[Rfam]
RNA sequence: CUGAAGCUCCAUCUACAAAUGGAUAAGAUCCCAGUAUAGUCCAAUAGGAGGUUUUGAAAAGAAAGGAGCAAUCAUCACUUCUUGUUCUAUCCAGAGGGUGCUAGUUCCUUU
Number, nucleotide and partner (000 for none) at each position: 001c000002u000003g000004a000005a000006g000007c000008u023009c022010c021011a020012u019013c000014u000015a000016c000017a000018a000019a012020u011021g010022g009023a008024u000025a000026a000027g000028a000029u000030c000031c000032c000033a000034g000035u000036a000037u000038a000039g000040u000041c000042c000043a000044a000045u000046a000047g000048g000049a000050g000051g000052u000053u000054u000055u000056g000057a000058a000059a000060a000061g000062a111063a110064a109065g108066g107067a106068g105069c104070a000071a102072u000073c100074a099075u000076c000077a000078c000079u096080u095081c094082u093083u000084g000085u000086u000087c000088u000089a000090u000091c000092c000093a082094g081095a080096g079097g000098g000099u074100g073101c000102u071103a000104g069105u068106u067107c066108c065109u064110u063111u062
This 111-nucleotide sequence from Nicotiana attenuata belongs to the Rfam family "Plastid-psbA-1 3UTR RNA". Plastid psbA-1 is a non-coding RNA (ncRNA) present in plastids.